[Rfam]
This 195-nucleotide RNA sequence from Rhodococcus sp. RD6.2 belongs to the Rfam family "Actinobacteria sRNA Ms_IGR-5".
RNA sequence: ACACGAGGAAGGAGGUGGUCUGAAGUUGAAGAACUACAGGACGCGUGAGGUGGCUGUCCGCUAGCCAACGAUGCUGAAGGGUUUCACCAACCGCCUCCGCGGCCGGCGAAUCCCAGCAGCCACCCGGCCCCCGAGUCUCCCGGCCAAGUCCGACCGGGAUCAGGACGUCAACGUCCGGCUCGGGGGUCGUUCUGC
Numbered sequence: 001a002c003a004c005g006a007g008g009a010a011g012g013a014g015g016u017g018g019u020c021u022g023a024a025g026u027u028g029a030a031g032a033a034c035u036a037c038a039g040g041a042c043g044c045g046u047g048a049g050g051u052g053g054c055u056g057u058c059c060g061c062u063a064g065c066c067a068a069c070g071a072u073g074c075u076g077a078a079g080g081g082u083u084u085c086a087c088c089a090a091c092c093g094c095c096u097c098c099g100c101g102g103c104c105g106g107c108g109a110a111u112c113c114c115a116g117c118a119g120c121c122a123c124c125c126g127g128c129c130c131c132c133g134a135g136u137c138u139c140c141c142g143g144c145c146a147a148g149u150c151c152g153a154c155c156g157g158g159a160u161c162a163g164g165a166c167g168u169c170a171a172c173g174u175c176c177g178g179c180u181c182g183g184g185g186g187u188c189g190u191u192c193u194g195c
Stems, first nucleotide, its partner, number of pairs: 014058006059108004064103002069099002073094002125189013139158005

It is annotated as a small RNA.
On this family, see Li et al., RNA 2013: "Identification of small RNAs in Mycobacterium smegmatis using heterologous Hfq".